This 307-nucleotide sequence from Winogradskyella aurantia belongs to the Rfam family "Bacterial RNase P class A".
Taxonomically the source falls in Winogradskyella (Bacteria, Pseudomonadati, Flavobacteriales, Flavobacteriaceae).
It scores 204 bits against the family's covariance model.
The family's RNA type in Rfam is ribozyme.

[Rfam]
RNA sequence: CGAGUAAAUCGCCUUAUCGAUUCUAAAUUUAUUUAGGGUAGGAAAGUCCGAACACCAAAGUGCGAUGCAGUGGCUAACGGCCAUCCACCGUGAGGUGAGGAAAAGUGCAACAGAAAGAAUGUACAGGUAAUGCUGUAGUGAAAUCAGGUAAACUCUGUGUGGUGCAAUGUCAUGUAAACUAACGCUUGAGGGCUGCACGCCCGAUGUUAGAGGGUAGACAGCUAAAGUUUACUGGUAACAGUAAACGUAGAUAAAUGAUAAGGACUCUUUGUGAGUACAGAAUUCGGCUUAUAGGUUUACUCUAAAU
Numbered sequence: 001c002g003a004g005u006a007a008a009u010c011g012c013c014u015u016a017u018c019g020a021u022u023c024u025a026a027a028u029u030u031a032u033u034u035a036g037g038g039u040a041g042g043a044a045a046g047u048c049c050g051a052a053c054a055c056c057a058a059a060g061u062g063c064g065a066u067g068c069a070g071u072g073g074c075u076a077a078c079g080g081c082c083a084u085c086c087a088c089c090g091u092g093a094g095g096u097g098a099g100g101a102a103a104a105g106u107g108c109a110a111c112a113g114a115a116a117g118a119a120u121g122u123a124c125a126g127g128u129a130a131u132g133c134u135g136u137a138g139u140g141a142a143a144u145c146a147g148g149u150a151a152a153c154u155c156u157g158u159g160u161g162g163u164g165c166a167a168u169g170u171c172a173u174g175u176a177a178a179c180u181a182a183c184g185c186u187u188g189a190g191g192g193c194u195g196c197a198c199g200c201c202c203g204a205u206g207u208u209a210g211a212g213g214g215u216a217g218a219c220a221g222c223u224a225a226a227g228u229u230u231a232c233u234g235g236u237a238a239c240a241g242u243a244a245a246c247g248u249a250g251a252u253a254a255a256u257g258a259u260a261a262g263g264a265c266u267c268u269u270u271g272u273g274a275g276u277a278c279a280g281a282a283u284u285c286g287g288c289u290u291a292u293a294g295g296u297u298u299a300c301u302c303u304a305a306a307u
Base pairs, nucleotide, nucleotide: 002302003301004300005299006298007297008296009295010294011292012263013262014261015260016259017258018257020039021038022037023036024035025034026033027032044290045289046288048287049286050285051284052283053164054163055162056161060198061197062196063195065160066159067158068157069156070084071083072082073081074080085099086097087096088095089094100155101154105153106152107149108148122137123136124135125134126133168220169219170218171217179210180209181208182207183206190202191201192200193199227246228245229244230243231242232241233240234239